RNA: tRNA
Organism: Luteolibacter pohnpeiensis
RNA sequence: GGAACGGUGGCUGAGUGGUCUAAAGCACUCCCUUGCUAAGGGAACGUAGCUCAAAAGGUUACCGAGGGUUCGAAUCCCUCCCGUUCCG
Numbered sequence: 001g002g003a004a005c006g007g008u009g010g011c012u013g014a015g016u017g018g019u020c021u022a023a024a025g026c027a028c029u030c031c032c033u034u035g036c037u038a039a040g041g042g043a044a045c046g047u048a049g050c051u052c053a054a055a056a057g058g059u060u061a062c063c064g065a066g067g068g069u070u071c072g073a074a075u076c077c078c079u080c081c082c083g084u085u086c087c088g
Base pairs, nucleotide, nucleotide: 001087002086003085004084005083006082007081010026011025012024029043030042031041032040064080065079066078067077068076